[Rfam]
RNA sequence: GGUUGCAAGUUUGAGGUCAUAGCAGAAGCAGUCACGGUGCAGCUCUGUCAGAUUCCAACAAGUCUGCAAAUUCUGCU
Numbered sequence: 001g002g003u004u005g006c007a008a009g010u011u012u013g014a015g016g017u018c019a020u021a022g023c024a025g026a027a028g029c030a031g032u033c034a035c036g037g038u039g040c041a042g043c044u045c046u047g048u049c050a051g052a053u054u055c056c057a058a059c060a061a062g063u064c065u066g067c068a069a070a071u072u073c074u075g076c077u
Base pairs, nucleotide, nucleotide: 013045014044016043017042021077022076023075024074025073026072027071028040029039030038049066050065051064052063053062054061
This 77-nucleotide RNA from Alligator mississippiensis belongs to the Rfam family "Mammalian CPEB3 ribozyme". A reference for the family is Salehi-Ashtiani et al. (2006), "A genomewide search for ribozymes reveals an HDV-like sequence in the human CPEB3 gene", Science. The family's consensus secondary structure is taken from published work.